[Rfam]
RNA sequence: CUUCAGCGACCCCAGCCACAGCGGCUCGGUCCGGCCCGCCCCGUAGGUGGCGAUCAGCGCCUGGGCCUC
Dot-bracket structure: .............((((.....))))(....((.....(.(((....))).).....))...)......
RNA: ASpks TB sRNA